[Rfam]
The family of this 139-nucleotide RNA from Carex littledalei is "Small nucleolar RNA snoR136". Rfam classes the family as an H/ACA-box small nucleolar RNA. Lineage of the source: Eukaryota > commelinids > Poales > Carex > Carex subgen. Euthyceras. Its family is annotated with RNA processing and nucleolus in the Gene Ontology.
RNA sequence: AUGCUUUAUUUAUUUGUUAAGCCUGUGGAUAAAAAUGUAUAUGCAUGGGCUUGUAAAACAAUAAAGCUAAAAUUGGUUUCCUCUCGCUAUCCGUUGCAUUUGUUAUAUUUUUGCAAUUGGACGUCGAGGAACAACAUUC
Numbered sequence: 001a002u003g004c005u006u007u008a009u010u011u012a013u014u015u016g017u018u019a020a021g022c023c024u025g026u027g028g029a030u031a032a033a034a035a036u037g038u039a040u041a042u043g044c045a046u047g048g049g050c051u052u053g054u055a056a057a058a059c060a061a062u063a064a065a066g067c068u069a070a071a072a073u074u075g076g077u078u079u080c081c082u083c084u085c086g087c088u089a090u091c092c093g094u095u096g097c098a099u100u101u102g103u104u105a106u107a108u109u110u111u112u113g114c115a116a117u118u119g120g121a122c123g124u125c126g127a128g129g130a131a132c133a134a135c136a137u138u139c
Stems, first nucleotide, its partner, number of pairs: 002069001003067003008062003012054002019052008030043002078131006085123002090121004
Dot-bracket structure: .((((..(((.((.....((((((((...((..........)).)))))))))).....)))..))).)........((((((.((...((((........................))))))..))))))........